[Rfam]
RNA sequence: AAAUACCUUUCUCAAUGUAGGGAAUAACAUUGAAUUGAUACAAAUACCUUUUUCGGUGUAGGGAAAAACACCGAAUUGAUACAAAUACCUUUCUCAAUGUAGGGAAUAACAUUGA
Numbered sequence: 001a002a003a004u005a006c007c008u009u010u011c012u013c014a015a016u017g018u019a020g021g022g023a024a025u026a027a028c029a030u031u032g033a034a035u036u037g038a039u040a041c042a043a044a045u046a047c048c049u050u051u052u053u054c055g056g057u058g059u060a061g062g063g064a065a066a067a068a069c070a071c072c073g074a075a076u077u078g079a080u081a082c083a084a085a086u087a088c089c090u091u092u093c094u095c096a097a098u099g100u101a102g103g104g105a106a107u108a109a110c111a112u113u114g115a
Stems, first nucleotide, its partner, number of pairs: 006021003012033007047062003053074007088103003094115007